[Rfam]
RNA sequence: GAAACGGGAAGCCGCACCGGGCAACCGGGUCAGACAGGCGCCCCUGCCCCGUAAGGGGCGGGUGCU
Numbered sequence: 001g002a003a004a005c006g007g008g009a010a011g012c013c014g015c016a017c018c019g020g021g022c023a024a025c026c027g028g029g030u031c032a033g034a035c036a037g038g039c040g041c042c043c044c045u046g047c048c049c050c051g052u053a054a055g056g057g058g059c060g061g062g063u064g065c066u
Stems, first nucleotide, its partner, number of pairs: 011039003014035001017028004043062008